[Rfam]
RNA sequence: AAAGUCCCUGUCGGGUAAGGGAUAGCCACCCACCCGUAUCGAGUCUUGCGUCCAAUGCGGAGCGUGUAAACGCGAACAAGAAGAUUGGAUGAGGCGUAGACAGAGAAUUCUGCAGGCCGCAGGGGUGGUCACGCACCCUGAAGAGCUGGUACAGCUUCGAGAUGACCUAACAAGCGGAUGCCGAGGGGUUUAAGGUUUACCGAAGGCAAUACAAGAACAUCCGAAAUGGCGAGGAUGCGAAGAUCCGCCGGAG
Numbered sequence: 001a002a003a004g005u006c007c008c009u010g011u012c013g014g015g016u017a018a019g020g021g022a023u024a025g026c027c028a029c030c031c032a033c034c035c036g037u038a039u040c041g042a043g044u045c046u047u048g049c050g051u052c053c054a055a056u057g058c059g060g061a062g063c064g065u066g067u068a069a070a071c072g073c074g075a076a077c078a079a080g081a082a083g084a085u086u087g088g089a090u091g092a093g094g095c096g097u098a099g100a101c102a103g104a105g106a107a108u109u110c111u112g113c114a115g116g117c118c119g120c121a122g123g124g125g126u127g128g129u130c131a132c133g134c135a136c137c138c139u140g141a142a143g144a145g146c147u148g149g150u151a152c153a154g155c156u157u158c159g160a161g162a163u164g165a166c167c168u169a170a171c172a173a174g175c176g177g178a179u180g181c182c183g184a185g186g187g188g189u190u191u192a193a194g195g196u197u198u199a200c201c202g203a204a205g206g207c208a209a210u211a212c213a214a215g216a217a218c219a220u221c222c223g224a225a226a227u228g229g230c231g232a233g234g235a236u237g238c239g240a241a242g243a244u245c246c247g248c249c250g251g252a253g
Stems, first nucleotide, its partner, number of pairs: 012036004019031003023232001025230002039104002043101004047096002049091008155253005174248006180207003185201002188198001212242001218237005
The family of this 253-nucleotide RNA sequence from Candidatus Brocadia fulgida is "Group II catalytic intron D1-D4-6". Group II introns are found in rRNA, tRNA and mRNA of organelles in fungi, plants and protists, and also in mRNA in bacteria. The pairing is the family consensus, mapped onto this sequence.